[Rfam]
RNA: Makes More Granules Regulator RNA (mmgR)
RNA sequence: CCGACGCGCCUUUUAGGCAUCCUCUUCCAAGACUUUACGGGCUCGGCUAAUGGCCGAGCCCUUUUUCGUUUGGUGC
Numbered sequence: 001c002c003g004a005c006g007c008g009c010c011u012u013u014u015a016g017g018c019a020u021c022c023u024c025u026u027c028c029a030a031g032a033c034u035u036u037a038c039g040g041g042c043u044c045g046g047c048u049a050a051u052g053g054c055c056g057a058g059c060c061c062u063u064u065u066u067c068g069u070u071u072g073g074u075g076c
Base pairs, nucleotide, nucleotide: 008018009017010016011015039061040060041059042058043057044056045055046054047053